The record is a 137-nucleotide sequence from Vidua chalybeata, which matches "Small nucleolar RNA SNORA15" in Rfam. Pairs were carried over by alignment from the consensus structure, which was predicted with RNAfold.
RNA sequence: GCAUGGAUGAAUUCUGCACUAGCUUUCCUCAGUAGCUGAUGCAGUCAGACACCAUGCCAGAGCAAAUUCCUUUUUUCCACUCUGCCUGGUGUGGUUUUUUUUGGGAAUGAGCAUGCCCUUGGAAGGGGAACACAUCA
Number, nucleotide and partner (000 for none) at each position: 001g057002c056003a055004u054005g053006g052007a000008u000009g000010a000011a000012u000013u000014c044015u043016g042017c041018a040019c000020u000021a000022g000023c000024u000025u000026u000027c000028c000029u000030c000031a000032g000033u000034a000035g000036c000037u000038g000039a000040u018041g017042c016043a015044g014045u000046c000047a000048g000049a000050c000051a000052c006053c005054a004055u003056g002057c001058c000059a000060g000061a000062g000063c000064a000065a000066a000067u000068u000069c000070c000071u129072u128073u126074u125075u124076u123077c122078c121079a120080c000081u000082c000083u000084g000085c000086c000087u000088g117089g116090u115091g114092u113093g112094g000095u110096u109097u000098u000099u000100u000101u000102u000103g000104g000105g000106a000107a000108u000109g096110a095111g000112c093113a092114u091115g090116c089117c088118c000119u000120u079121g078122g077123a076124a075125g074126g073127g000128g072129a071130a000131c000132a000133c000134a000135u000136c000137a000
Source information
Rfam's curators write: ACA15 is a member of the H/ACA class of snoRNA that guide the sites of modification of uridines to pseudouridines. A reference for the family is Huttenhofer et al. (2001), "RNomics: an experimental approach that identifies 201 candidates for novel, small, non-messenger RNAs in mouse", EMBO J. Rfam links the family to the GO terms RNA processing and nucleolus. It scores 68 bits against the family's covariance model.